[Rfam]
RNA: mir-460 microRNA precursor family
RNA sequence: CUUUGCAGCAGCUGCAUUGUACACACUGUGUGUGUGACUGCAACGCACAGCGCAUGCAAUGUGGGUGUUGUGCAA
Numbered sequence: 001c002u003u004u005g006c007a008g009c010a011g012c013u014g015c016a017u018u019g020u021a022c023a024c025a026c027u028g029u030g031u032g033u034g035u036g037a038c039u040g041c042a043a044c045g046c047a048c049a050g051c052g053c054a055u056g057c058a059a060u061g062u063g064g065g066u067g068u069u070g071u072g073c074a075a
Stems, first nucleotide, its partner, number of pairs: 012064002015061007024052001026050006
Dot-bracket structure: ...........((.(((((((..(.((((((.............)))))).)..))))))).))...........